[Rfam]
RNA sequence: UAUAUAGGAGGCCUUCUCUUCCUGGUUCUUUCUGGAGUCGGGAAAAGCUGGGUUUAGAAGGUGUUUAAAAAAAAAA
Number, nucleotide and partner (000 for none) at each position: 001u000002a000003u000004a000005u000006a000007g000008g000009a000010g000011g000012c000013c000014u059015u058016c057017u056018c000019u000020u000021c052022c051023u050024g049025g048026u000027u000028c000029u044030u043031u042032c041033u040034g039035g000036a000037g000038u000039c034040g033041g032042g031043a030044a029045a000046a000047g000048c025049u024050g023051g022052g021053u000054u000055u000056a017057g016058a015059a014060g000061g000062u000063g000064u000065u000066u000067a000068a000069a000070a000071a000072a000073a000074a000075a000076a000
Rfam assigns this 76-nucleotide RNA from Saimiri boliviensis to the family "mir-320 microRNA precursor family". The organism belongs to Saimiri boliviensis, within Eukaryota. The family's consensus secondary structure was predicted with RNAalifold.